[Rfam]
RNA sequence: GGGCAGGAUGUGUGAAGUAGUCCCACCAUGCAAGCAUGGUCGGCUUCUUCACUGGUACUUAUUCGCACCUGCGGUGCUCAACGUUCAUCCUGCCCUGCGGGGCC
Numbered sequence: 001g002g003g004c005a006g007g008a009u010g011u012g013u014g015a016a017g018u019a020g021u022c023c024c025a026c027c028a029u030g031c032a033a034g035c036a037u038g039g040u041c042g043g044c045u046u047c048u049u050c051a052c053u054g055g056u057a058c059u060u061a062u063u064c065g066c067a068c069c070u071g072c073g074g075u076g077c078u079c080a081a082c083g084u085u086c087a088u089c090c091u092g093c094c095c096u097g098c099g100g101g102g103c104c
Stems, first nucleotide, its partner, number of pairs: 001095009012052006019045003025040006055086001057084002065077005
Rfam assigns this 104-nucleotide RNA sequence from Aeromonas simiae to the family "traJ-II RNA". The match comes from Rfam's covariance-model search (99 bits). Rfam 15.1 lists 174 matches to the family in 172 species. Taxonomically the source falls in Aeromonas (Bacteria, Pseudomonadota, Aeromonadales, Aeromonadaceae).